[Rfam]
RNA sequence: CGAGAUGCCCUUCUUGAGCUGGUGAACAGGACCCUCAGCAAGUCCCCUUUUUCCAGAUCAGAAGGGCAUUCUCACGCUCCCACGCCCACCACCGGGCCAACCCAAUCGGUGGAUCGAG
Numbered sequence: 001c002g003a004g005a006u007g008c009c010c011u012u013c014u015u016g017a018g019c020u021g022g023u024g025a026a027c028a029g030g031a032c033c034c035u036c037a038g039c040a041a042g043u044c045c046c047c048u049u050u051u052u053c054c055a056g057a058u059c060a061g062a063a064g065g066g067c068a069u070u071c072u073c074a075c076g077c078u079c080c081c082a083c084g085c086c087c088a089c090c091a092c093c094g095g096g097c098c099a100a101c102c103c104a105a106u107c108g109g110u111g112g113a114u115c116g117a118g
Stems, first nucleotide, its partner, number of pairs: 002072001004070010015060003019056004024050003029045001031043002098116001100114001102112003
This 118-nucleotide sequence from Pengzhenrongella sicca belongs to the Rfam family "Actinobacteria sRNA Ms_IGR-7". A search with the family's covariance model found it, with a score of 49 bits. Rfam classes the family as a small RNA. The organism belongs to Pengzhenrongella, within Bacteria. The base pairs follow the family's consensus structure.